This 84-nucleotide sequence from Neopipo cinnamomea belongs to the Rfam family "Small nucleolar RNA SNORD11B". Rfam classes the family as a C/D-box small nucleolar RNA. A search with the family's covariance model found it, with a score of 79 bits. The source organism's lineage runs through Eukaryota, Bilateria, Sauria, Saurischia and Neopipo. Rfam 15.1 lists 733 matches to the family in 632 species. The family is grouped with related families in Rfam's "SNORD11 clan".
[Rfam]
RNA sequence: GGAUGGCAGUGAUGAUUCCUGUAUUGUUGCUUUCCCGAUGUUCAGACAUGAGGGUGCACAGUCACUACCUCAUCUGAGCCAUCU
Number, nucleotide and partner (000 for none) at each position: 001g000002g083003a082004u081005g080006g079007c078008a000009g000010u000011g000012a000013u000014g000015a000016u000017u000018c000019c000020u000021g000022u000023a000024u000025u000026g000027u000028u000029g000030c000031u000032u000033u000034c000035c000036c000037g000038a000039u000040g000041u000042u000043c000044a000045g000046a000047c000048a000049u000050g000051a000052g000053g000054g000055u000056g000057c000058a000059c000060a000061g000062u000063c000064a000065c000066u000067a000068c000069c000070u000071c000072a000073u000074c000075u000076g000077a000078g007079c006080c005081a004082u003083c002084u000